About this RNA
This 184-nucleotide sequence from Furfurilactobacillus rossiae belongs to the Rfam family "Lysine riboswitch aptamer". The family's consensus secondary structure is taken from published work. The organism belongs to Furfurilactobacillus rossiae, within Bacteria.
RNA sequence: AAUCAUAGAAGAGGUUGCGAAGAUUAAAAGUAACUAAGAGGAAAUCGACGAGGUUAACGACGCUUAGUGAAAGGAUGAUUCGCCGAAACUUUGACUGACUCGUCUCAGUUAGGGUUGGGACUUGGGUUAACAGCCCAAGGACUGUCGCAACUAACAAAAAAGUUGCGGGGCGCUAUCUACGACC
Number, nucleotide and partner (000 for none) at each position: 001a000002a000003u000004c000005a000006u179007a178008g177009a176010a174011g173012a000013g000014g000015u000016u000017g083018c082019g081020a080021a079022g000023a000024u000025u075026a000027a000028a000029a000030g000031u000032a000033a068034c067035u066036a065037a064038g063039a000040g061041g000042a000043a000044a000045u000046c000047g000048a000049c000050g000051a000052g000053g000054u000055u000056a000057a000058c000059g000060a000061c040062g000063c038064u037065u036066a035067g034068u033069g000070a000071a000072a000073g000074g000075a025076u000077g000078a000079u021080u020081c019082g018083c017084c000085g000086a000087a116088a115089c114090u113091u112092u111093g110094a109095c108096u107097g106098a105099c000100u000101c000102g000103u000104c000105u098106c097107a096108g095109u094110u093111a092112g091113g090114g089115u088116u087117g143118g142119g000120a000121c139122u138123u137124g136125g135126g134127u133128u000129a000130a000131c000132a000133g127134c126135c125136c124137a123138a122139g121140g000141a000142c118143u117144g000145u168146c167147g166148c165149a164150a163151c162152u000153a000154a000155c000156a000157a000158a000159a000160a000161a000162g151163u150164u149165g148166c147167g146168g145169g000170g000171c000172g000173c011174u010175a000176u009177c008178u007179a006180c000181g000182a000183c000184c000